About this RNA
RNase E 5' UTR element: a 336-nucleotide RNA. A reference for the family is Diwa et al. (2000), "An evolutionarily conserved RNA stem-loop functions as a sensor that directs feedback regulation of RNase E gene expression", Genes Dev. This family represents a conserved element found in the 5' UTR of RNase E mRNA. RNase E is a key regulatory enzyme in the pathway of mRNA degradation in E. coli that is able to auto-regulate the degradation of its own mRNA in response to changes in RNase E activity. This rne 5' UTR element acts as a sensor of cellular RNase E concentration enabling tight regulation of RNase E concentration and synthesis. A search with the family's covariance model found it, with a score of 262 bits.
[Rfam]
RNA sequence: UUUUCCGUGUUAAAUCCUGGUUAAGUAAGGAUAUCGACGGAAUGACCAAUUUUGUCUGACCGAUCAUCCACGCAGCAAUGGCGUAAGACGUAUUGAUCUUUCAGGCAGUUAGCGGGCUGCGGGUUGCAGUACUUACCGGUAAAUGGAAUCUUCUCUGGAGAGUUUUACCCAGGCUAUUCCCCUGAUAAUCGCGCUGUAUUUCCGUAUGAAAUACAGGCAACCGACACUUUGCGCCUCUUAAGCGAGCGACAACCGUGAGGUUGGCGACGUGAAUAGACACGAGGCCAUCGGUUCAUACCCCGGAAAGCGUCAUCUUGCCCGCAGCUUAGUCGUCAA
Numbered sequence: 001u002u003u004u005c006c007g008u009g010u011u012a013a014a015u016c017c018u019g020g021u022u023a024a025g026u027a028a029g030g031a032u033a034u035c036g037a038c039g040g041a042a043u044g045a046c047c048a049a050u051u052u053u054g055u056c057u058g059a060c061c062g063a064u065c066a067u068c069c070a071c072g073c074a075g076c077a078a079u080g081g082c083g084u085a086a087g088a089c090g091u092a093u094u095g096a097u098c099u100u101u102c103a104g105g106c107a108g109u110u111a112g113c114g115g116g117c118u119g120c121g122g123g124u125u126g127c128a129g130u131a132c133u134u135a136c137c138g139g140u141a142a143a144u145g146g147a148a149u150c151u152u153c154u155c156u157g158g159a160g161a162g163u164u165u166u167a168c169c170c171a172g173g174c175u176a177u178u179c180c181c182c183u184g185a186u187a188a189u190c191g192c193g194c195u196g197u198a199u200u201u202c203c204g205u206a207u208g209a210a211a212u213a214c215a216g217g218c219a220a221c222c223g224a225c226a227c228u229u230u231g232c233g234c235c236u237c238u239u240a241a242g243c244g245a246g247c248g249a250c251a252a253c254c255g256u257g258a259g260g261u262u263g264g265c266g267a268c269g270u271g272a273a274u275a276g277a278c279a280c281g282a283g284g285c286c287a288u289c290g291g292u293u294c295a296u297a298c299c300c301c302g303g304a305a306a307g308c309g310u311c312a313u314c315u316u317g318c319c320c321g322c323a324g325c326u327u328a329g330u331c332g333u334c335a336a
Base pairs, nucleotide, nucleotide: 003042004041005040006039007038008037014032015031016030017029018028052108053107054106055105056104057103058102059101063097064096065095066094070091071090072089075082076081114327115326116325117324118323119322120321121320122319123318124317133306134305136303137302138301139300145180146179147178148177149176154173155172156171157170158169191218192217194216195215196214197213199211200210201209202208220292221291222290223289224288233285234284235283236282237281247266248265250263251262252261253260254259